[Rfam]
RNA sequence: UCAAAGGGUAGAGGAGCAGUUUACAACAGUACAUGCUUAGAGGUUAUGGGCCAAUGAAAAGUAUGGAAAGGGUAAACUGCCGAAGUGAGCAAGUUGCCAUACAACUAGAUUACUGGGCCUACAGCUGAACAAGCUUAGGACUGUCACAAGGUUAUUAUUGUGGAGGGCUAUUGAAGAG
Numbered sequence: 001u002c003a004a005a006g007g008g009u010a011g012a013g014g015a016g017c018a019g020u021u022u023a024c025a026a027c028a029g030u031a032c033a034u035g036c037u038u039a040g041a042g043g044u045u046a047u048g049g050g051c052c053a054a055u056g057a058a059a060a061g062u063a064u065g066g067a068a069a070g071g072g073u074a075a076a077c078u079g080c081c082g083a084a085g086u087g088a089g090c091a092a093g094u095u096g097c098c099a100u101a102c103a104a105c106u107a108g109a110u111u112a113c114u115g116g117g118c119c120u121a122c123a124g125c126u127g128a129a130c131a132a133g134c135u136u137a138g139g140a141c142u143g144u145c146a147c148a149a150g151g152u153u154a155u156u157a158u159u160g161u162g163g164a165g166g167g168c169u170a171u172u173g174a175a176g177a178g
Base pairs, nucleotide, nucleotide: 007172008171009170010169011168016080017079018078019077020076021075022074023073024072032065033064034063035062036061037060038059084114085113086112087111088110090108092106093105094104095103115142116141118139119138120137121136123135124134125133126132144163145162146161147160148159149158
RNA: Lysine riboswitch aptamer
Organism: Gottfriedia endophytica